[Rfam]
The family of this 82-nucleotide RNA from Carlito syrichta is "Small nucleolar RNA ZL8". The family has 6 seed sequences and 113 matches in Rfam 15.1. A reference for the family is Kishore et al. (2013), "Insights into snoRNA biogenesis and processing from PAR-CLIP of snoRNA core proteins and small RNA sequencing", Genome Biol. A search with the family's covariance model found it, with a score of 62 bits. Its family is annotated with nucleolus and RNA processing in the Gene Ontology. The family's consensus secondary structure was predicted with RNAfold. Rfam classes the family as a C/D-box small nucleolar RNA.

RNA sequence: UUGAAAUGGUAAUGAUGAGUUGGUUAGACUAGAGUCUCUGAGCUUUUCACUGAUGAUCUUGGUAACGACCUAAUCCAUUCCU
Numbered sequence: 001u002u003g004a005a006a007u008g009g010u011a012a013u014g015a016u017g018a019g020u021u022g023g024u025u026a027g028a029c030u031a032g033a034g035u036c037u038c039u040g041a042g043c044u045u046u047u048c049a050c051u052g053a054u055g056a057u058c059u060u061g062g063u064a065a066c067g068a069c070c071u072a073a074u075c076c077a078u079u080c081c082u
Stems, first nucleotide, its partner, number of pairs: 003081001005079005018074001020072001022070003031059003035055001037053002040050001042048001